[Rfam]
RNA sequence: GCUGGGAUGACCUGCUUUGGGAAGCAGCUGGGACUUCAAAUCCCUGGAUCACUAGCGUGAUAGGUGUUCGAUUCAUCCUUCCUAGC
Numbered sequence: 001g002c003u004g005g006g007a008u009g010a011c012c013u014g015c016u017u018u019g020g021g022a023a024g025c026a027g028c029u030g031g032g033a034c035u036u037c038a039a040a041u042c043c044c045u046g047g048a049u050c051a052c053u054a055g056c057g058u059g060a061u062a063g064g065u066g067u068u069c070g071a072u073u074c075a076u077c078c079u080u081c082c083u084a085g086c
Stems, first nucleotide, its partner, number of pairs: 001086007009078001012027006028046001030044004048061005063077004